[Rfam]
RNA: U7 small nuclear RNA
Organism: Mus musculus
RNA sequence: GAGUGAACACAGCUCUUUUAGAAGUCUAGCAGUUUUUCUGACUAUGAUUGGAAAGCCCAU
Numbered sequence: 001g002a003g004u005g006a007a008c009a010c011a012g013c014u015c016u017u018u019u020a021g022a023a024g025u026c027u028a029g030c031a032g033u034u035u036u037u038c039u040g041a042c043u044a045u046g047a048u049u050g051g052a053a054a055g056c057c058c059a060u
Stems, first nucleotide, its partner, number of pairs: 032057001034055008